[Rfam]
RNA sequence: GAAUGAAGGAAGCAUGAAAAUGUGUCCAGAAAUUUAUUUGGAUCUCUAGGCUUGUCCUCUCUUAUGCCUUUUGACUUUGAACUGGGGGCGCGGUUCCGCAGCAAAAUG
Numbered sequence: 001g002a003a004u005g006a007a008g009g010a011a012g013c014a015u016g017a018a019a020a021u022g023u024g025u026c027c028a029g030a031a032a033u034u035u036a037u038u039u040g041g042a043u044c045u046c047u048a049g050g051c052u053u054g055u056c057c058u059c060u061c062u063u064a065u066g067c068c069u070u071u072u073g074a075c076u077u078u079g080a081a082c083u084g085g086g087g088g089c090g091c092g093g094u095u096c097c098g099c100a101g102c103a104a105a106a107u108g
Stems, first nucleotide, its partner, number of pairs: 012025004040091001043088002052079001054075003

The record is a 108-nucleotide RNA from Rhododendron williamsianum, which matches "Small nucleolar RNA snoR100" in Rfam. Rfam 15.1 lists 1,851 matches to the family in 220 species. For this family Rfam cites "Experimental RNomics: identification of 140 candidates for small non-messenger RNAs in the plant Arabidopsis thaliana" (Marker et al., Curr Biol, 2002). A search with the family's covariance model found it, with a score of 62 bits. Gene Ontology terms of the family: RNA processing and nucleolus. The organism belongs to Rhododendron, within Eukaryota.